Rfam assigns this 69-nucleotide RNA from Oryzias latipes to the family "mir-338 microRNA precursor family". Lineage of the source: Eukaryota > Chordata > Craniata > Acanthomorphata > Oryzias. On this family, see Meiri et al., Nucleic Acids Res 2010: "Discovery of microRNAs and other small RNAs in solid tumors". The family's consensus secondary structure was predicted with RNAalifold.
RNA sequence: CCAGAAACAACAUCCUGGUGCUGCCUGAGUGUGUAAUGCAAACUCCAGCAUCAGUGAUUUUGUUGCUGG
Numbered sequence: 001c002c003a004g005a006a007a008c009a010a011c012a013u014c015c016u017g018g019u020g021c022u023g024c025c026u027g028a029g030u031g032u033g034u035a036a037u038g039c040a041a042a043c044u045c046c047a048g049c050a051u052c053a054g055u056g057a058u059u060u061u062g063u064u065g066c067u068g069g
Stems, first nucleotide, its partner, number of pairs: 006064005012058003015054009